Rfam assigns this 162-nucleotide RNA from Pan paniscus to the family "U1 spliceosomal RNA". The family has 100 seed sequences and 40,184 matches in Rfam 15.1. The family's RNA type in Rfam is spliceosomal small nuclear RNA. Gene Ontology terms of the family: mRNA 5'-splice site recognition, U1 snRNP and pre-mRNA 5'-splice site binding. NCBI's taxonomy places the organism under Eukaryota, Gnathostomata, Teleostomi, Haplorrhini, Pan. The base pairs follow the family's consensus structure, which is taken from published work. U1 is a small nuclear RNA (snRNA) component of the spliceosome (involved in pre-mRNA splicing).

RNA sequence: AUACUUACUUGGUGGGGGAGAUACCAAGAUCACAAAGUUGGUUUCCCAGGGCGAGGCUUAUUCAGUACACUCCAGGUGUGCUGACCCCUGCGAUUUCCCCAAAUGUGGGAAGCUCGACUGCAUACUUUGUGGUAGAGAGAACUGUGUUCGUGCUCUCCCCUU
Numbered sequence: 001a002u003a004c005u006u007a008c009u010u011g012g013u014g015g016g017g018g019a020g021a022u023a024c025c026a027a028g029a030u031c032a033c034a035a036a037g038u039u040g041g042u043u044u045c046c047c048a049g050g051g052c053g054a055g056g057c058u059u060a061u062u063c064a065g066u067a068c069a070c071u072c073c074a075g076g077u078g079u080g081c082u083g084a085c086c087c088c089u090g091c092g093a094u095u096u097c098c099c100c101a102a103a104u105g106u107g108g109g110a111a112g113c114u115c116g117a118c119u120g121c122a123u124a125c126u127u128u129g130u131g132g133u134a135g136a137g138a139g140a141a142c143u144g145u146g147u148u149c150g151u152g153c154u155c156u157c158c159c160c161u162u
Base pairs, nucleotide, nucleotide: 012121013120014119015118016047017046018045019044020043023042024041025040026039027038048089049088050087051086053085055082056081057080059078060077061076062075091116092115093114094112095111096110098108099107136161137160139158141156144153145152146151